[Rfam]
The record is a 100-nucleotide sequence from Pipistrellus kuhlii, which matches "mir-9261 microRNA precursor family" in Rfam.
Its family is annotated with RISC complex and miRNA-mediated post-transcriptional gene silencing in the Gene Ontology.
NCBI's taxonomy places the organism under Eukaryota, Eumetazoa, Theria, Laurasiatheria, Pipistrellus.
A search with the family's covariance model found it, with a score of 88 bits.
RNA sequence: AACAAUUUGUCCCGCGUCCCUCGGCAUUUUAAAAAAGUCUCGAUUUUUGCAAAAAUCGGGACUUUUUUAAAACGCCGAGGGACACGGGACAAAUUGUUAA
Numbered sequence: 001a002a003c004a005a006u007u008u009g010u011c012c013c014g015c016g017u018c019c020c021u022c023g024g025c026a027u028u029u030u031a032a033a034a035a036a037g038u039c040u041c042g043a044u045u046u047u048u049g050c051a052a053a054a055a056u057c058g059g060g061a062c063u064u065u066u067u068u069a070a071a072a073c074g075c076c077g078a079g080g081g082a083c084a085c086g087g088g089a090c091a092a093a094u095u096g097u098u099a100a
Stems, first nucleotide, its partner, number of pairs: 001098014016083010027072014